This 62-nucleotide RNA from Nomascus leucogenys belongs to the Rfam family "mir-1285 microRNA precursor family". The family has 5 seed sequences and 264 matches in Rfam 15.1.
[Rfam]
RNA sequence: CGGGUGGAUCACUUGAGCCCAGGAGUUUUGAGACCAGCCUGGGCAACAAAGUGAGACCUCAU
Numbered sequence: 001c002g003g004g005u006g007g008a009u010c011a012c013u014u015g016a017g018c019c020c021a022g023g024a025g026u027u028u029u030g031a032g033a034c035c036a037g038c039c040u041g042g043g044c045a046a047c048a049a050a051g052u053g054a055g056a057c058c059u060c061a062u
Stems, first nucleotide, its partner, number of pairs: 009054006017044007028037003